[Rfam]
RNA sequence: CGUACAGUUCCAGAGGCCAUGGCAGAAGUGUUCAGAUCGUGGCUCCUGUCAGAUUCCUAGUCAUCUGUGAAUUCUGCU
Numbered sequence: 001c002g003u004a005c006a007g008u009u010c011c012a013g014a015g016g017c018c019a020u021g022g023c024a025g026a027a028g029u030g031u032u033c034a035g036a037u038c039g040u041g042g043c044u045c046c047u048g049u050c051a052g053a054u055u056c057c058u059a060g061u062c063a064u065c066u067g068u069g070a071a072u073u074c075u076g077c078u
Base pairs, nucleotide, nucleotide: 013046015044016043017042018041021078022077023076024075025074026073027072028040029039030038050067051066052065053064054063
Source information:
This 78-nucleotide RNA sequence from Microcaecilia unicolor belongs to the Rfam family "Mammalian CPEB3 ribozyme". Its family is annotated with RNA nuclease activity in the Gene Ontology. The organism belongs to Microcaecilia, within Eukaryota.